A member of the RNA family "Makes More Granules Regulator RNA (mmgR)" from Novosphingobium chloroacetimidivorans, 76 nucleotides long. The pairing is the family consensus, mapped onto this sequence. It scores 50 bits against the family's covariance model.
[Rfam]
RNA sequence: AGGGCGUGCCUUUCAGGCAUCCUCUCCCAAACUUUCAAAGGGCUGGUCUUCGGACCGGCCUUUUUUUUUGGCCUUG
Numbered sequence: 001a002g003g004g005c006g007u008g009c010c011u012u013u014c015a016g017g018c019a020u021c022c023u024c025u026c027c028c029a030a031a032c033u034u035u036c037a038a039a040g041g042g043c044u045g046g047u048c049u050u051c052g053g054a055c056c057g058g059c060c061u062u063u064u065u066u067u068u069u070g071g072c073c074u075u076g
Base pairs, nucleotide, nucleotide: 008018009017010016011015040061041060042059043058044057045056046055047054048053
Dot-bracket structure: .......((((...)))).....................(((((((((....)))))))))...............
The literature on the family includes a 2005 paper in Genome Biol by Corbino et al., "Evidence for a second class of S-adenosylmethionine riboswitches and other regulatory RNA motifs in alpha-proteobacteria". Taxonomically the source falls in Novosphingobium (Bacteria, Pseudomonadati, Pseudomonadota, Sphingomonadaceae). From the family's description: SuhB later renamed mmgR (makes more granules regulator) was a putative non-coding RNA found multiple times in the Agrobacterium tumefaciens genome and related alpha-proteobacteria. Other non-coding RNAs uncovered in the same analysis include: speF, ybhL, metA, and serC.Several studies inSinorhizobium meliloti showed that suhB element is indeed a non-coding RNA:firstly it was detected on Northern blot and called Sm8RNA, secondly in an RNAseq study referred to as SmelC689.The mutant phenotype's (strain lacking the small RNA) cytoplasm contains higher content of polyhydroxybutyrate (PBH)storage granules than wild type strain. The sRNA is required to limit the PBH intracellular accumulation when the nitrogen-fixing Sinorhizobium meliloti is under condition of surplus carbon in relation to nitrogen.